[Rfam]
RNA sequence: GACUCGGAUUUGCGCAAUUUCGACACCUAAACCCUGUCAGGACGGAAGUAGCAGCAGUAUUAAGAUGCUUGGGGUAGGCGCAAACACCGGGUCUUU
Numbered sequence: 001g002a003c004u005c006g007g008a009u010u011u012g013c014g015c016a017a018u019u020u021c022g023a024c025a026c027c028u029a030a031a032c033c034c035u036g037u038c039a040g041g042a043c044g045g046a047a048g049u050a051g052c053a054g055c056a057g058u059a060u061u062a063a064g065a066u067g068c069u070u071g072g073g074g075u076a077g078g079c080g081c082a083a084a085c086a087c088c089g090g091g092u093c094u095u096u
Stems, first nucleotide, its partner, number of pairs: 003091005009084006017075006026064001028062002034057004042049002